[Rfam]
RNA sequence: UCCCCUCUGGUCCAGUGGUUCUAGACAGUUCAACAGCAGUCAGGUCGUUUGUGAAAUGUUUAGGACCACUUGACCCGGG
Dot-bracket structure: .............((((((.((.((((.((((...................)))).)))).)).)))))).........

This 79-nucleotide sequence from Austrofundulus limnaeus belongs to the Rfam family "mir-203 microRNA precursor family".
Gene Ontology terms of the family: miRNA-mediated post-transcriptional gene silencing and RISC complex.
NCBI's taxonomy places the organism under Eukaryota, Bilateria, Vertebrata, Rivulidae, Austrofundulus.
The match comes from Rfam's covariance-model search (71 bits).